The record is a 98-nucleotide RNA sequence from Thiothrix nivea, which matches "t44 RNA" in Rfam. Rfam's curators write: This family consists of a number of bacterial RNA genes of between 135 and 170 bases in length. The t44 gene has been identified in several species of enteric bacteria but homologs have also been identified in Pseudomonas and Coxiella species. The t44 gene is found between the map and rpsB genes in all species in the full alignment apart from Shigella flexneri. The function of this RNA is unknown.
RNA sequence: UUUUACAUUUUUUAAAUCCACACAUACAUCGACACGCCGCGCAGGGUGCCUGAACCAAAAAAAUCGGGUUGCGCAGGUGGGAUGUAUGGAGGCAUAAC
Numbered sequence: 001u002u003u004u005a006c007a008u009u010u011u012u013u014a015a016a017u018c019c020a021c022a023c024a025u026a027c028a029u030c031g032a033c034a035c036g037c038c039g040c041g042c043a044g045g046g047u048g049c050c051u052g053a054a055c056c057a058a059a060a061a062a063a064u065c066g067g068g069u070u071g072c073g074c075a076g077g078u079g080g081g082a083u084g085u086a087u088g089g090a091g092g093c094a095u096a097a098c
Stems, first nucleotide, its partner, number of pairs: 023088008035079004040073004048069005